[Rfam]
RNA: Bacillaceae-1 RNA
Organism: Bacillus sp. SJS
RNA sequence: UAGUAAAGAUGUUCUGCUAAAGGCGCGACGUCCUGUCGCAACGCAGAACUGCCUGCAUCGUGCUGC
Numbered sequence: 001u002a003g004u005a006a007a008g009a010u011g012u013u014c015u016g017c018u019a020a021a022g023g024c025g026c027g028a029c030g031u032c033c034u035g036u037c038g039c040a041a042c043g044c045a046g047a048a049c050u051g052c053c054u055g056c057a058u059c060g061u062g063c064u065g066c
Stems, first nucleotide, its partner, number of pairs: 011049007025039005053065001055063002